A member of the RNA family "Group II catalytic intron D1-D4-2" from Maribellus comscasis, 111 nucleotides long. The family has 144 seed sequences and 1,231 matches in Rfam 15.1.
RNA sequence: GGGCUUCGGCUAAGCCGAUUAGGCGAAUUGGUCAAACCACCCAAUGGUGCUUUUCUUUCACGGAACGGUACUGAGCGAUUGGGAAACGGCUCCGAAUAUUCAGGGUCAGGU
Number, nucleotide and partner (000 for none) at each position: 001g000002g000003g000004c000005u000006u000007c000008g033009g032010c031011u030012a029013a028014g000015c000016c025017g024018a000019u000020u000021a000022g000023g000024c017025g016026a000027a000028u013029u012030g011031g010032u009033c008034a000035a000036a000037c000038c110039a000040c083041c082042c081043a080044a079045u078046g072047g071048u000049g069050c068051u067052u000053u065054u064055c063056u062057u000058u000059c000060a000061c000062g056063g055064a054065a053066c000067g051068g050069u049070a000071c047072u046073g000074a000075g000076c000077g000078a045079u044080u043081g042082g041083g040084a000085a000086a000087c000088g107089g106090c105091u104092c103093c000094g000095a000096a000097u000098a000099u000100u000101c000102a000103g092104g091105g090106u089107c088108a000109g000110g038111u000

About this RNA: From the family's description: Group II introns are found in rRNA, tRNA and mRNA of organelles in fungi, plants and protists, and also in mRNA in bacteria.